[Rfam]
RNA: Small nucleolar RNA R160
Organism: Hibiscus syriacus
RNA sequence: AGCAAAAUGAUGAAAAUAGUUUAAAACCCUAAUUCCCGUGUGGGAAUCCGAUUCUGGGUCUUCAGAGUUAUCUGAUUGCU
Numbered sequence: 001a002g003c004a005a006a007a008u009g010a011u012g013a014a015a016a017u018a019g020u021u022u023a024a025a026a027c028c029c030u031a032a033u034u035c036c037c038g039u040g041u042g043g044g045a046a047u048c049c050g051a052u053u054c055u056g057g058g059u060c061u062u063c064a065g066a067g068u069u070a071u072c073u074g075a076u077u078g079c080u
Stems, first nucleotide, its partner, number of pairs: 001080005